The family of this 55-nucleotide RNA from Nitrobacter winogradskyi is "nhaA-I RNA".
Rfam's curators write: Acidobacteria, Alphaproteobacteria, Betaproteobacteria and Gammaproteobacteria, Verrucomicrobia, cand. division NC10.
The sequence is in the family's curated seed alignment.
NCBI's taxonomy places the organism under Bacteria, Pseudomonadati, Pseudomonadota, Hyphomicrobiales, Nitrobacter winogradskyi.

RNA sequence: GGGUGUUCGCUGCAUUGGGCAGCGAAACAGGUCGUGCGAUGGUCGGGCCGCCACG
Numbered sequence: 001g002g003g004u005g006u007u008c009g010c011u012g013c014a015u016u017g018g019g020c021a022g023c024g025a026a027a028c029a030g031g032u033c034g035u036g037c038g039a040u041g042g043u044c045g046g047g048c049c050g051c052c053a054c055g
Base pairs, nucleotide, nucleotide: 005028006026007025008024009023010022011021037055038054040053041052042051043050